[Rfam]
Nucleotides: 099
Stems, first nucleotide, its partner, number of pairs: 019084007029047006057075006
Number, partner (000 for none) and nucleotide at each position: 001000a002000a003000c004000c005000u006000a007000a008000c009000a010000a011000a012000g013000u014000a015000a016000u017000u018000a019084c020083c021082u022081c023080a024079u025078a026000u027000a028000a029047u030046u031045u032044g033043a034042g035000a036000a037000u038000a039000c040000g041000g042034c043033u044032c045031a046030a047029a048000a049000g050000u051000u052000u053000c054000u055000a056000c057075c058074c059073a060072u061071c062070a063000c064000c065000g066000u067000a068000a069000a070062u071061g072060a073059u074058g075057g076000a077000c078025u079024a080023u081022g082021a083020g084019g085000g086000a087000a088000g089000a090000u091000g092000a093000c094000c095000g096000a097000u098000g099000a
The record is a 99-nucleotide RNA sequence from Gracilibacillus thailandensis, which matches "Purine riboswitch aptamer" in Rfam. Rfam links the family to the GO term purine nucleobase biosynthetic process. The family's consensus secondary structure is taken from published work. A search with the family's covariance model found it, with a score of 79 bits. The organism belongs to Gracilibacillus, within Bacteria.